[Rfam]
Rfam assigns this 55-nucleotide sequence to the family "6A RNA". It is one of the family's seed sequences.
RNA sequence: AGAACUGCUUGUACAGUAGCAAGCAGGGUAAUAAAAAGAAAUACUGAUAUUAAGA
Numbered sequence: 001a002g003a004a005c006u007g008c009u010u011g012u013a014c015a016g017u018a019g020c021a022a023g024c025a026g027g028g029u030a031a032u033a034a035a036a037a038g039a040a041a042u043a044c045u046g047a048u049a050u051u052a053a054g055a
Stems, first nucleotide, its partner, number of pairs: 006025006014046004